[Rfam]
RNA sequence: GAGAUUGCGAGAGGGUAUCGCGCAGGGACUUCGUUUUUGAAGUCCCUGUGAGGAAAGUCCGGUCCCAUAAGGAGCGGGGUGCCCGUUAAGCCCUAUUUUUCGUUAGGGUGGAGCGGGGGCAUGAGAGUGCUGGAAAGUGCCACAGAAAACAUACCGCGGUAUGUAUUUUCAUACAUACCGCAAGGGUGAAAAGGUGCGGUAAGAGCGCACCAGAAACCCGGGCAACCGGGUUUGCUUGGUAAACCCCACCCCGGGCAAGGCCAAGCAGGGGGGAAAGGAGAGAGAGGAUGAAGAAAAAUAAAAAUGUUUUUGAGCUUGUUCCACUUCUCUCUCCUUGCGGGUCGCUCCUUACCGCCAUUUACCCCCGGGUAGGCCGCUUAGAGUAAUGAUACCCAAAAACACAGAAACCGGCUUAUCUGGCAAUCUCUCCC
Numbered sequence: 001g002a003g004a005u006u007g008c009g010a011g012a013g014g015g016u017a018u019c020g021c022g023c024a025g026g027g028a029c030u031u032c033g034u035u036u037u038u039g040a041a042g043u044c045c046c047u048g049u050g051a052g053g054a055a056a057g058u059c060c061g062g063u064c065c066c067a068u069a070a071g072g073a074g075c076g077g078g079g080u081g082c083c084c085g086u087u088a089a090g091c092c093c094u095a096u097u098u099u100u101c102g103u104u105a106g107g108g109u110g111g112a113g114c115g116g117g118g119g120c121a122u123g124a125g126a127g128u129g130c131u132g133g134a135a136a137g138u139g140c141c142a143c144a145g146a147a148a149a150c151a152u153a154c155c156g157c158g159g160u161a162u163g164u165a166u167u168u169u170c171a172u173a174c175a176u177a178c179c180g181c182a183a184g185g186g187u188g189a190a191a192a193g194g195u196g197c198g199g200u201a202a203g204a205g206c207g208c209a210c211c212a213g214a215a216a217c218c219c220g221g222g223c224a225a226c227c228g229g230g231u232u233u234g235c236u237u238g239g240u241a242a243a244c245c246c247c248a249c250c251c252c253g254g255g256c257a258a259g260g261c262c263a264a265g266c267a268g269g270g271g272g273g274a275a276a277g278g279a280g281a282g283a284g285a286g287g288a289u290g291a292a293g294a295a296a297a298a299u300a301a302a303a304a305u306g307u308u309u310u311u312g313a314g315c316u317u318g319u320u321c322c323a324c325u326u327c328u329c330u331c332u333c334c335u336u337g338c339g340g341g342u343c344g345c346u347c348c349u350u351a352c353c354g355c356c357a358u359u360u361a362c363c364c365c366c367g368g369g370u371a372g373g374c375c376g377c378u379u380a381g382a383g384u385a386a387u388g389a390u391a392c393c394c395a396a397a398a399a400c401a402c403a404g405a406a407a408c409c410g411g412c413u414u415a416u417c418u419g420g421c422a423a424u425c426u427c428u429c430c431c
Stems, first nucleotide, its partner, number of pairs: 001427008010418001011416001013394007021050012055414003059411005064255003077251005082117005118131005132246002137244002139240003154185002156181011193211006213235001214233008259375004269366005
Dot-bracket structure: ((((((((.((.(((((((.((((((((((((......))))))))))))....[[[.[[[[[(((..........((((((((((..........................)))))(((((....)))))((...(((((............(((((((((((((....)))))))))))..)).......((((((.......)))))).(((((((((....)))))))).)..)))..))))))))).)))...((((......(((((........................................................................................))))).....))))............)))))))............]]]]]]]].).).))))))))....
Background: The record is a 431-nucleotide sequence from bacterium HR19, which matches "Bacterial RNase P class A" in Rfam. The match comes from Rfam's covariance-model search (225 bits).